A member of the RNA family "mraW RNA" from Polymorphospora rubra, 105 nucleotides long.
RNA sequence: CGCCCGACGUACUGCGAGAUCUCCAGCCGCUCCUGCCCCUGGCACCUCUUCCCCGGUGCCAGGCGUAACGAGCGGAUGGGGAUCUGGCGGUACGACGAGCGACGC
Numbered sequence: 001c002g003c004c005c006g007a008c009g010u011a012c013u014g015c016g017a018g019a020u021c022u023c024c025a026g027c028c029g030c031u032c033c034u035g036c037c038c039c040u041g042g043c044a045c046c047u048c049u050u051c052c053c054c055g056g057u058g059c060c061a062g063g064c065g066u067a068a069c070g071a072g073c074g075g076a077u078g079g080g081g082a083u084c085u086g087g088c089g090g091u092a093c094g095a096c097g098a099g100c101g102a103c104g105c
Stems, first nucleotide, its partner, number of pairs: 010092006018084002021081005027075006034068001035066002038063008
NCBI's taxonomy places the organism under Bacteria, Actinomycetota, Actinomycetes, Micromonosporaceae, Polymorphospora. It scores 64 bits against the family's covariance model. The family's consensus secondary structure is taken from published work.